[Rfam]
The family of this 119-nucleotide RNA sequence from Paramixta manurensis is "tp2". The family's consensus secondary structure was predicted with RNAalifold. By type it is a small RNA. Lineage of the source: Bacteria > Pseudomonadati > Pseudomonadota > Enterobacterales > Paramixta. It scores 88 bits against the family's covariance model.
RNA sequence: GGUAUUCCUUAUCUGUGUCUAAUACGUUGAAUUGUCUGGAGCCUGUCUCCCUGUAUUCUGAUUCACUCCAGAACACAAGGAGACAAGCCCGUCGUUUAGUUGCCGCAUAACCUUUCAUC
Number, nucleotide and partner (000 for none) at each position: 001g104002g103003u102004a101005u000006u000007c000008c000009u000010u000011a000012u000013c000014u000015g000016u000017g000018u000019c000020u000021a000022a000023u000024a095025c094026g093027u000028u000029g000030a000031a000032u000033u000034g000035u000036c000037u000038g000039g090040a000041g088042c087043c000044u085045g084046u083047c082048u000049c000050c079051c000052u077053g076054u075055a000056u073057u072058c071059u070060g069061a000062u000063u000064c000065a000066c000067u000068c000069c060070a059071g058072a057073a056074c000075a054076c053077a052078a000079g050080g000081a000082g047083a046084c045085a044086a000087g042088c041089c000090c039091g000092u000093c026094g025095u024096u000097u000098a000099g000100u000101u004102g003103c002104c001105g000106c000107a000108u000109a000110a000111c000112c000113u000114u000115u000116c000117a000118u000119c000